[Rfam]
RNA: Rhodo-rpoB RNA
Organism: Pelagovum pacificum
RNA sequence: GGGUCGGGCGGUUGCCGGUGGGAUGGCAGCCAGUAUGGACCCCGUGACAUCCCCUCUCGUAAGAGGCGCCUCGCCGUGGCCCACCGGUGACGUGC
Numbered sequence: 001g002g003g004u005c006g007g008g009c010g011g012u013u014g015c016c017g018g019u020g021g022g023a024u025g026g027c028a029g030c031c032a033g034u035a036u037g038g039a040c041c042c043c044g045u046g047a048c049a050u051c052c053c054c055u056c057u058c059g060u061a062a063g064a065g066g067c068g069c070c071u072c073g074c075c076g077u078g079g080c081c082c083a084c085c086g087g088u089g090a091c092g093u094g095c
Stems, first nucleotide, its partner, number of pairs: 001042005010031008066095004072089005